[Rfam]
RNA sequence: GGGGCUGAUAGGCCAGGGGGGCAGGGCUCGCAUAUGCGGUCUCUACCUCUUCAACUGGGCUGUCAGGACC
Numbered sequence: 001g002g003g004g005c006u007g008a009u010a011g012g013c014c015a016g017g018g019g020g021g022c023a024g025g026g027c028u029c030g031c032a033u034a035u036g037c038g039g040u041c042u043c044u045a046c047c048u049c050u051u052c053a054a055c056u057g058g059g060c061u062g063u064c065a066g067g068a069c070c
Stems, first nucleotide, its partner, number of pairs: 006065006013058004017050005026040003
Shown here is a 70-nucleotide sequence, a member of the family "Hepatitis C virus stem-loop VII". On this family, see Pirakitikulr et al., Mol Cell 2016: "The Coding Region of the HCV Genome Contains a Network of Regulatory RNA Structures". Pairs were carried over by alignment from the consensus structure, which was predicted with RNAfold. It is one of the family's seed sequences.